Record summary: Bacterial small subunit ribosomal RNA: a 356-nucleotide part of an RNA from uncultured bacterium HF0500_16O16. It is one of the family's seed sequences.

RNA sequence: GGCGUAAAGAGCUCGUAGGUGGAUGUGUAAGUCGGAUGUGAAAUCCUCUGGCUCAACCAGAGAACUGCACCCGAAACUGCACAUCUUGAGUCCAGCAGAGGGAAUCGGAAUCAAGGGUGUAGCGGUGAAAUGCGUAGAGAUCCUUGAGAACACCAGUGGCGAAGGCGGAUUCCUGGGCUGGCACUGACACUGAGGAGCGAAAGCGUGGGUAGCGAACAGGAUUAGAUACCCUGGUAGUCCACGCCGUAAACGAUGGGUACUAGGCGUUGGGGGAUGUUGACCCCCUCAGUGCCGUAGCUAACGCAUUAAGUACCCCGCCUGGGGAGUACGGUCGCAAGGCUGAAACUCAAAGGAAU
Number, nucleotide and partner (000 for none) at each position: 001g319002g318003c317004g000005u000006a000007a000008a000009g316010a000011g198012c197013u196014c195015g000016u192017a000018g191019g190020u189021g000022g085023a084024u083025g082026u081027g080028u079029a000030a078031g077032u074033c073034g072035g071036a000037u069038g068039u067040g066041a000042a000043a000044u000045c000046c062047u061048c060049u059050g058051g057052c000053u000054c000055a000056a000057c051058c050059a049060g048061a047062g046063a000064a000065c000066u040067g039068c038069a037070c000071c035072c034073g033074a032075a000076a000077c031078u030079g028080c027081a026082c025083a024084u023085c022086u000087u000088g000089a185090g184091u183092c181093c180094a179095g178096c177097a000098g000099a000100g174101g173102g172103a171104a170105u169106c168107g151108g000109a000110a000111u147112c146113a145114a144115g143116g142117g141118u140119g000120u000121a000122g133123c132124g131125g000126u000127g000128a000129a000130a000131u124132g123133c122134g000135u000136a000137g000138a000139g000140a118141u117142c116143c115144u114145u113146g112147a111148g000149a000150a000151c107152a000153c000154c000155a000156g000157u000158g000159g166160c165161g000162a000163a000164g000165g160166c159167g000168g106169a105170u104171u103172c102173c101174u100175g000176g000177g096178c095179u094180g093181g092182c000183a091184c090185u089186g000187a000188c000189a020190c019191u018192g016193a000194g000195g014196a013197g012198c011199g000200a000201a000202a000203g244204c243205g242206u241207g240208g239209g000210u000211a000212g238213c237214g000215a000216a000217c233218a232219g231220g230221a000222u000223u000224a000225g000226a000227u000228a000229c000230c220231c219232u218233g217234g000235u000236a000237g213238u212239c208240c207241a206242c205243g204244c203245c000246g000247u000248a000249a000250a000251c000252g000253a000254u000255g315256g314257g313258u312259a311260c310261u000262a000263g293264g292265c291266g290267u289268u288269g287270g286271g285272g284273g283274a000275u000276g000277u000278u000279g000280a000281c000282c000283c273284c272285c271286u270287c269288a268289g267290u266291g265292c264293c263294g000295u000296a000297g304298c303299u000300a000301a000302c000303g298304c297305a000306u000307u000308a000309a000310g260311u259312a258313c257314c256315c255316c009317g003318c002319c001320u000321g348322g347323g346324g000325a000326g000327u000328a000329c000330g341331g340332u339333c338334g000335c000336a000337a000338g333339g332340c331341u330342g000343a000344a000345a000346c323347u322348c321349a000350a000351a000352g000353g000354a000355a000356u000
Pairs were carried over by alignment from the consensus structure, which is taken from published work.